[Rfam]
RNA: pemK RNA
RNA sequence: ACAAUGAUACUUGCGACUUGAACGCUUCACAGCAUUGGUCGCCGCGCCAUCGGCAUGGAGCGGGGUGGGAUUCCCAUGA
Numbered sequence: 001a002c003a004a005u006g007a008u009a010c011u012u013g014c015g016a017c018u019u020g021a022a023c024g025c026u027u028c029a030c031a032g033c034a035u036u037g038g039u040c041g042c043c044g045c046g047c048c049a050u051c052g053g054c055a056u057g058g059a060g061c062g063g064g065g066u067g068g069g070a071u072u073c074c075c076a077u078g079a
Stems, first nucleotide, its partner, number of pairs: 012076001013042006043062003047058003063075003